[Rfam]
Record summary: This 134-nucleotide sequence from Suricata suricatta belongs to the Rfam family "U11 spliceosomal RNA". A search with the family's covariance model found it, with a score of 98 bits. For this family Rfam cites "Additional low-abundance human small nuclear ribonucleoproteins: U11, U12, etc" (Montzka and Steitz, Proc Natl Acad Sci U S A, 1988). The base pairs follow the family's consensus structure, which is taken from published work.

RNA sequence: GAAAAGGGCUUCUGUCGUGAGUGGCACACGGAGGGCAGCUGCAUGGCUCUUCAUGUGGAAUCGACAUCGAGAGAUUUUGGAAGUAUAAGUUUUUGGUACCUGGGCAGCUGGUGAUCAUUGGUCCCAGUGUCCGC
Numbered sequence: 001g002a003a004a005a006g007g008g009c010u011u012c013u014g015u016c017g018u019g020a021g022u023g024g025c026a027c028a029c030g031g032a033g034g035g036c037a038g039c040u041g042c043a044u045g046g047c048u049c050u051u052c053a054u055g056u057g058g059a060a061u062c063g064a065c066a067u068c069g070a071g072a073g074a075u076u077u078u079g080g081a082a083g084u085a086u087a088a089g090u091u092u093u094u095g096g097u098a099c100c101u102g103g104g105c106a107g108c109u110g111g112u113g114a115u116c117a118u119u120g121g122u123c124c125c126a127g128u129g130u131c132c133g134c
Stems, first nucleotide, its partner, number of pairs: 008084005013026005027055002030052007038044001056079007102132004107128005113123004